This 82-nucleotide sequence from Caenorhabditis brenneri belongs to the Rfam family "mir-61 microRNA precursor family".
Nucleotides: 082
Base pairs, nucleotide, nucleotide: 008078009077010076011075012074013073014072015071016070017069018068019067020066021065022064023063024062025061028058030057031056032055033054034053036051037050038048039047
Number, partner (000 for none) and nucleotide at each position: 001000u002000g003000u004000u005000g006000a007000a008078c009077u010076u011075c012074g013073a014072g015071u016070u017069g018068g019067g020066u021065c022064a023063c024062g025061g026000u027000g028058c029000u030057u031056a032055g033054u034053c035000c036051u037050u038048c039047c040000a041000a042000c043000a044000g045000u046000c047039g048038g049000u050037a051036a052000u053034g054033a055032c056031u057030a058028g059000a060000a061025c062024c063023g064022u065021g066020a067019c068018u069017c070016a071015g072014c073013u074012c075011g076010a077009g078008g079000a080000a081000g082000c

Source information:
Rfam links the family to the GO terms RISC complex and miRNA-mediated post-transcriptional gene silencing. A search with the family's covariance model found it, with a score of 78 bits. A reference for the family is Lau et al. (2001), "An abundant class of tiny RNAs with probable regulatory roles in Caenorhabditis elegans", Science.